[Rfam]
RNA sequence: AGACGUUCUUGGGGCAGGGUGUAAUUCCCUACCGGCGGUGAUGGAGAGCUUAGGCAAUCCCAGCCCGCGAGCGCUCUAUAGGUUCCUAUAGAGGACAAGCAGAUCCGGUGUGAUUCCGGAGCCGACGGUUAUAGUCCGGAUGAGAGAGAACGCUC
Number, nucleotide and partner (000 for none) at each position: 001a000002g000003a000004c152005g151006u150007u149008c148009u147010u146011g000012g000013g000014g000015c000016a000017g029018g028019g027020u000021g000022u000023a000024a000025u000026u000027c019028c018029c017030u000031a135032c134033c124034g123035g068036c067037g066038g065039u000040g000041a000042u000043g000044g000045a000046g000047a000048g000049c000050u000051u000052a000053g000054g000055c000056a000057a000058u000059c000060c000061c000062a000063g122064c121065c038066c037067g036068c035069g000070a000071g100072c099073g000074c000075u000076c000077u000078a000079u000080a000081g000082g000083u000084u000085c000086c000087u000088a000089u000090a000091g000092a000093g000094g000095a000096c000097a000098a000099g072100c071101a000102g000103a000104u120105c119106c118107g117108g116109u000110g000111u000112g000113a000114u000115u000116c108117c107118g106119g105120a104121g064122c063123c034124g033125a000126c138127g137128g136129u000130u000131a000132u000133a000134g032135u031136c128137c127138g126139g000140a000141u000142g000143a000144g000145a000146g010147a009148g008149a007150a006151c005152g004153c000154u000155c000
About this RNA
Shown here is a 155-nucleotide RNA from Saccharibacter sp. 17.LH.SD, a member of the family "FMN riboswitch aptamer (RFN element)". It scores 115 bits against the family's covariance model. The source organism's lineage runs through Bacteria, Pseudomonadati, Acetobacterales, Acetobacteraceae and Saccharibacter.